Rfam assigns this 73-nucleotide RNA sequence to the family "tRNA". Pairs were carried over by alignment from the consensus structure, which is taken from published work. It is one of the family's seed sequences. The family's RNA type in Rfam is transfer RNA.
RNA sequence: GCCCGGCUAGCUCAGUCGGUAGAGCAUGAGACUCUUAAUCUCAGGGUCGUGGGUUCGAGCCCCACGUUGGGCG
Number, nucleotide and partner (000 for none) at each position: 001g072002c071003c070004c069005g068006g067007c066008u000009a000010g025011c024012u023013c022014a000015g000016u000017c000018g000019g000020u000021a000022g013023a012024g011025c010026a000027u043028g042029a041030g040031a039032c000033u000034c000035u000036u000037a000038a000039u031040c030041u029042c028043a027044g000045g000046g000047u000048c000049g065050u064051g063052g062053g061054u000055u000056c000057g000058a000059g000060c000061c053062c052063c051064a050065c049066g007067u006068u005069g004070g003071g002072c001073g000